[Rfam]
RNA sequence: GAGGGGAACGGGGGAUGGAAGGACGGGAAGUGGAAGUCCUGAUACCCAUCCUACACCCCCCUGCCUUCCACCCUCCGGCCCCCCG
Numbered sequence: 001g002a003g004g005g006g007a008a009c010g011g012g013g014g015a016u017g018g019a020a021g022g023a024c025g026g027g028a029a030g031u032g033g034a035a036g037u038c039c040u041g042a043u044a045c046c047c048a049u050c051c052u053a054c055a056c057c058c059c060c061c062u063g064c065c066u067u068c069c070a071c072c073c074u075c076c077g078g079c080c081c082c083c084c085g
Base pairs, nucleotide, nucleotide: 003083004082005081006080009077010076011075012074013073014072016070017069018068019067020066021065022064025061026060027059030056031055032054
mir-H1 microRNA precursor family: an 85-nucleotide RNA from Simplexvirus humanalpha1. Its family is annotated with miRNA-mediated post-transcriptional gene silencing and RISC complex in the Gene Ontology.